[Rfam]
RNA sequence: CUGUACACUAUUAAUGGAUAAGGUUUUUCUGCUAACAUAUAAGAAUUUUUGAAGAAAGAAAAGACAAAAAUGCCCAAUAUCUUGUUCUAGCAAGAUAUUGGGUAUUUUGAAUCUUUU
Numbered sequence: 001c002u003g004u005a006c007a008c009u010a011u012u013a014a015u016g017g018a019u020a021a022g023g024u025u026u027u028u029c030u031g032c033u034a035a036c037a038u039a040u041a042a043g044a045a046u047u048u049u050u051g052a053a054g055a056a057a058g059a060a061a062a063g064a065c066a067a068a069a070a071u072g073c074c075c076a077a078u079a080u081c082u083u084g085u086u087c088u089a090g091c092a093a094g095a096u097a098u099u100g101g102g103u104a105u106u107u108u109g110a111a112u113c114u115u116u117u
Stems, first nucleotide, its partner, number of pairs: 001017004059117006067108007075100003079096005

This 117-nucleotide RNA from Hordeum vulgare belongs to the Rfam family "Plastid-psbA-1 3UTR RNA". The source organism's lineage runs through Eukaryota, Tracheophyta, Poaceae, Triticeae and Hordeum vulgare. A search with the family's covariance model found it, with a score of 56 bits. The base pairs follow the family's consensus structure, which was predicted with LocARNA. Rfam's curators write: Plastid psbA-1 is a non-coding RNA (ncRNA) present in plastids. Its Rfam clan is "Plastid-psbA 3UTR RNA clan".